[Rfam]
RNA sequence: UUGAUACAAGUGAUGACUGCAUAGUUCAGCAGAAAAUCCAUGUAGAAGGAAAUGCUCAUUGUCUUUCGCUCCUAGCUGAUGUAUCUC
Numbered sequence: 001u002u003g004a005u006a007c008a009a010g011u012g013a014u015g016a017c018u019g020c021a022u023a024g025u026u027c028a029g030c031a032g033a034a035a036a037u038c039c040a041u042g043u044a045g046a047a048g049g050a051a052a053u054g055c056u057c058a059u060u061g062u063c064u065u066u067c068g069c070u071c072c073u074a075g076c077u078g079a080u081g082u083a084u085c086u087c
Base pairs, nucleotide, nucleotide: 004084005083006082007081008080
The family of this 87-nucleotide RNA from Chanos chanos is "Small nucleolar RNA snR60/Z15/Z230/Z193/J17".
A reference for the family is Lowe and Eddy (1999), "A computational screen for methylation guide snoRNAs in yeast", Science.
The base pairs follow the family's consensus structure.
Its Rfam clan is "SNORD77 clan".
Taxonomically the source falls in Chanos (Eukaryota, Bilateria, Chordata, Neopterygii).
Gene Ontology terms of the family: RNA processing and nucleolus.
The family's RNA type in Rfam is C/D-box small nucleolar RNA.